[Rfam]
RNA sequence: GCCACAUGAUGUUUCAUUGUGAGAAGUGAGCGCUCUGCGCAAUGCUGACCAUAAUCUAUCACCCUUGACUGAUGGCU
Numbered sequence: 001g002c003c004a005c006a007u008g009a010u011g012u013u014u015c016a017u018u019g020u021g022a023g024a025a026g027u028g029a030g031c032g033c034u035c036u037g038c039g040c041a042a043u044g045c046u047g048a049c050c051a052u053a054a055u056c057u058a059u060c061a062c063c064c065u066u067g068a069c070u071g072a073u074g075g076c077u
Stems, first nucleotide, its partner, number of pairs: 001076004030040004
The record is a 77-nucleotide RNA sequence from Dipodomys ordii, which matches "Small nucleolar RNA SNORD83" in Rfam.
The base pairs follow the family's consensus structure, which was predicted with PFOLD.
The family's RNA type in Rfam is C/D-box small nucleolar RNA.
Its family is annotated with RNA processing and nucleolus in the Gene Ontology.
A reference for the family is Jady and Kiss (2000), "Characterisation of the U83 and U84 small nucleolar RNAs: two novel 2'-O-ribose methylation guide RNAs that lack complementarities to ribosomal RNAs", Nucleic Acids Res.